The family of this 79-nucleotide sequence is "L20-Deltaproteobacteria ribosomal protein leader". Pairs were carried over by alignment from the consensus structure, which is taken from published work. The sequence is in the family's curated seed alignment.
RNA sequence: ACCCGUGAACUGUGGGGCACACCUGUCUCCCCCUGCAGAUCCGGGUGCGGGGCAACCCGUUUAGCCGAUUCUCAAGGAG
Numbered sequence: 001a002c003c004c005g006u007g008a009a010c011u012g013u014g015g016g017g018c019a020c021a022c023c024u025g026u027c028u029c030c031c032c033c034u035g036c037a038g039a040u041c042c043g044g045g046u047g048c049g050g051g052g053c054a055a056c057c058c059g060u061u062u063a064g065c066c067g068a069u070u071c072u073c074a075a076g077g078a079g
Stems, first nucleotide, its partner, number of pairs: 003044003007041002010038008